This 64-nucleotide sequence belongs to the Rfam family "Fluoride riboswitch aptamer (crcB RNA motif)". Pairs were carried over by alignment from the consensus structure, which is taken from published work.

RNA sequence: AUAUGGAAUGGUGAUGGGGUUCACCUUUAACCGCUUAUUUUAAGCUGAUGACUCCUGCACAAUA
Numbered sequence: 001a002u003a004u005g006g007a008a009u010g011g012u013g014a015u016g017g018g019g020u021u022c023a024c025c026u027u028u029a030a031c032c033g034c035u036u037a038u039u040u041u042a043a044g045c046u047g048a049u050g051a052c053u054c055c056u057g058c059a060c061a062a063u064a
Stems, first nucleotide, its partner, number of pairs: 010025004016055006033045004